This 162-nucleotide sequence from Sphaeramia orbicularis belongs to the Rfam family "U1 spliceosomal RNA". Its Rfam clan is "U1 clan".

RNA sequence: AUAAUUACCUGGCAGGGGAGACACCAUGAUCAAGAAGGUGGUUCACCCAGGGCAAGACUCUGCCAUUACACUCGGGUUUUACUGACCCUUGCGAAUUCCCCAAAUGUGGGAAUCUCGACUGCAUAAUUUCUGGUAGUAGGAGACUGCUUUCGCACUCUCCCC
Numbered sequence: 001a002u003a004a005u006u007a008c009c010u011g012g013c014a015g016g017g018g019a020g021a022c023a024c025c026a027u028g029a030u031c032a033a034g035a036a037g038g039u040g041g042u043u044c045a046c047c048c049a050g051g052g053c054a055a056g057a058c059u060c061u062g063c064c065a066u067u068a069c070a071c072u073c074g075g076g077u078u079u080u081a082c083u084g085a086c087c088c089u090u091g092c093g094a095a096u097u098c099c100c101c102a103a104a105u106g107u108g109g110g111a112a113u114c115u116c117g118a119c120u121g122c123a124u125a126a127u128u129u130c131u132g133g134u135a136g137u138a139g140g141a142g143a144c145u146g147c148u149u150u151c152g153c154a155c156u157c158u159c160c161c162c
Base pairs, nucleotide, nucleotide: 012122013121014120015119016048017047018046020044021043023042024041025040026039027038049090050089051088052087056083062077063076064075092117093116094115095113096112097111099109100108139160140159141158142157143156145154146153147152
Rfam classes the family as a spliceosomal small nuclear RNA. The match comes from Rfam's covariance-model search (124 bits).